[Rfam]
RNA sequence: UUCAGUUCUCCGGGGGGUCGCCAUCAGGCGGCUGAGAGUGGGGUGAAGCCCCUGACCCGUCGAACCUGAUCCGGGUCAUGCCGGCGAAGGGAUGGGACACAAGCGGGCAU
Numbered sequence: 001u002u003c004a005g006u007u008c009u010c011c012g013g014g015g016g017g018u019c020g021c022c023a024u025c026a027g028g029c030g031g032c033u034g035a036g037a038g039u040g041g042g043g044u045g046a047a048g049c050c051c052c053u054g055a056c057c058c059g060u061c062g063a064a065c066c067u068g069a070u071c072c073g074g075g076u077c078a079u080g081c082c083g084g085c086g087a088a089g090g091g092a093u094g095g096g097a098c099a100c101a102a103g104c105g106g107g108c109a110u
Base pairs, nucleotide, nucleotide: 007097008096009095010094011059012058013057014056016053017032018031019030020029021028040052041051042050043049065090066089067088071084072083073082074081
The record is a 110-nucleotide RNA sequence from Ameyamaea chiangmaiensis, which matches "TPP riboswitch aptamer (THI element)" in Rfam. The family's consensus secondary structure is taken from published work. Lineage of the source: Bacteria > Pseudomonadota > Alphaproteobacteria > Acetobacteraceae > Ameyamaea. From the family's description: Vitamin B(1) in its active form thiamin pyrophosphate (TPP) is an essential coenzyme that is synthesised by coupling of pyrimidine and thiazole moieties in bacteria.